The record is a 236-nucleotide RNA sequence from Gloeothece verrucosa, which matches "HNH endonuclease-associated RNA and ORF (HEARO) RNA" in Rfam. For this family Rfam cites "Exceptional structured noncoding RNAs revealed by bacterial metagenome analysis" (Weinberg et al., Nature, 2009). Rfam classes the family as a non-coding RNA gene.
RNA sequence: GUCAGCACCCCGCAUUGAAAUUGCGGGGCUAGGCUACGCCUCGCUGCGCGUCCAUGCCCCCAGUUUCAGUUAGUUGACCAGCCUAAGUCUUAAAUGACUACGUUUUUCAGGUCAUAAUACCUACAAAUACGUUGCUAGUUUGUAGCUCUAUUGUUAACAAUUAAACAGUUUUACGAGGGGUAAGACAGUGUUGUUAACCCAACAAGCCUUAAAAACAUUGGCGAAGCGAACUUUAC
Numbered sequence: 001g002u003c004a005g006c007a008c009c010c011c012g013c014a015u016u017g018a019a020a021u022u023g024c025g026g027g028g029c030u031a032g033g034c035u036a037c038g039c040c041u042c043g044c045u046g047c048g049c050g051u052c053c054a055u056g057c058c059c060c061c062a063g064u065u066u067c068a069g070u071u072a073g074u075u076g077a078c079c080a081g082c083c084u085a086a087g088u089c090u091u092a093a094a095u096g097a098c099u100a101c102g103u104u105u106u107u108c109a110g111g112u113c114a115u116a117a118u119a120c121c122u123a124c125a126a127a128u129a130c131g132u133u134g135c136u137a138g139u140u141u142g143u144a145g146c147u148c149u150a151u152u153g154u155u156a157a158c159a160a161u162u163a164a165a166c167a168g169u170u171u172u173a174c175g176a177g178g179g180g181u182a183a184g185a186c187a188g189u190g191u192u193g194u195u196a197a198c199c200c201a202a203c204a205a206g207c208c209u210u211a212a213a214a215a216c217a218u219u220g221g222c223g224a225a226g227c228g229a230a231c232u233u234u235a236c
Stems, first nucleotide, its partner, number of pairs: 001078006007071001009028002011025002014021002029043001031041004081222003085218001086099004102216006109209004117151002121145008129232001132229005153198009165189002168186007